[Rfam]
RNA sequence: ACCGGGCAUGGUAACGCUUGCCUGUAACUCAAGUGAGGGUGUUAAAGACGGUUGGACGCUGAUUCAGCAAAGUCAGGUUGGCUCCAUUGGUGCACAAACUGGCUUGCCCGUUCCAAGUUGUGAGUUGGACCAUGUGACUUGAGCGAAGGCUUGGGUCACGUGGUCCCUAAAGUAGGGGGCACUGCGUAAGGCUGGCUUCACAGAGCCGCGAAAACCCCUCGCUCACGACAGUGGAAGGAUUACAAGUCGGGGCUCCAUGGCUCCAUAAUAACCUGCUGGGCUGUCUCAAAUGAACAACCAUCUUU
Numbered sequence: 001a002c003c004g005g006g007c008a009u010g011g012u013a014a015c016g017c018u019u020g021c022c023u024g025u026a027a028c029u030c031a032a033g034u035g036a037g038g039g040u041g042u043u044a045a046a047g048a049c050g051g052u053u054g055g056a057c058g059c060u061g062a063u064u065c066a067g068c069a070a071a072g073u074c075a076g077g078u079u080g081g082c083u084c085c086a087u088u089g090g091u092g093c094a095c096a097a098a099c100u101g102g103c104u105u106g107c108c109c110g111u112u113c114c115a116a117g118u119u120g121u122g123a124g125u126u127g128g129a130c131c132a133u134g135u136g137a138c139u140u141g142a143g144c145g146a147a148g149g150c151u152u153g154g155g156u157c158a159c160g161u162g163g164u165c166c167c168u169a170a171a172g173u174a175g176g177g178g179g180c181a182c183u184g185c186g187u188a189a190g191g192c193u194g195g196c197u198u199c200a201c202a203g204a205g206c207c208g209c210g211a212a213a214a215c216c217c218c219u220c221g222c223u224c225a226c227g228a229c230a231g232u233g234g235a236a237g238g239a240u241u242a243c244a245a246g247u248c249g250g251g252g253c254u255c256c257a258u259g260g261c262u263c264c265a266u267a268a269u270a271a272c273c274u275g276c277u278g279g280g281c282u283g284u285c286u287c288a289a290a291u292g293a294a295c296a297a298c299c300a301u302c303u304u305u
Base pairs, nucleotide, nucleotide: 001040002039003038004023005022006021007020008019010017028037029036030035044305045304046303047302048301050299051298052297053296054295057292058291060288061287065283066282067281068280072277074275075274076273077272078271079270080264081263084260085259086258087257089256090255092253095251099250100249101248102247103246104245105244106243108238109237111236112235113234114233115232117229118228119227120226121225122224123223124222125221127166128165129164130163131162132161133160134159135158136157137156138155139154140153141152142151143150144149167172174219175218176217177216178215183212185210186209187208192203193202194201
Dot-bracket structure: ((((((((.(......).)))))....(((....))))))...(((((.(((((..((.((...((((...(.((((((((..((((.((.(..(...((((((((.((.(((((.(((((((((.((((((((((((((((((....))))))))))))))))))(....).(((((....(.(((....(((......)))....))).)..))))).)))))))))..)))))))....))))))))).).))))))..)).....)))))).)..))))...))..))..))))).)))))
Shown here is a 305-nucleotide RNA sequence from Helianthus annuus, a member of the family "Plant signal recognition particle RNA". Rfam classes the family as a non-coding RNA gene.